About this RNA: The record is a 98-nucleotide RNA from Spiroplasma sp. NBRC 100390, which matches "Purine riboswitch aptamer" in Rfam. The base pairs follow the family's consensus structure, which is taken from published work. It scores 56 bits against the family's covariance model. Riboswitches are metabolite binding domains within certain messenger RNAs that serve as precision sensors for their corresponding targets. Allosteric rearrangement of mRNA structure is mediated by ligand binding, and this results in modulation of gene expression. A class of riboswitches that selectively recognises guanine and becomes saturated at concentrations as low as 5 nM. In Bacillus subtilis, this mRNA motif is located on at least five separate transcriptional units that together encode 17 genes that are mostly involved in purine transport and purine nucleotide biosynthesis. It has also been shown that some members of this family are specific for adenine instead.
RNA sequence: UAAUACUAUAAUAUAUUUUCCUAUAUAUACUAGAAAUAUGGUCUGGUGUCUCUACAGUUAACCCUAAAUUAAUUACUAUAGGUCUUAAUUUAUUUUUA
Numbered sequence: 001u002a003a004u005a006c007u008a009u010a011a012u013a014u015a016u017u018u019u020c021c022u023a024u025a026u027a028u029a030c031u032a033g034a035a036a037u038a039u040g041g042u043c044u045g046g047u048g049u050c051u052c053u054a055c056a057g058u059u060a061a062c063c064c065u066a067a068a069u070u071a072a073u074u075a076c077u078a079u080a081g082g083u084c085u086u087a088a089u090u091u092a093u094u095u096u097u098a
Stems, first nucleotide, its partner, number of pairs: 020082006029047006056074006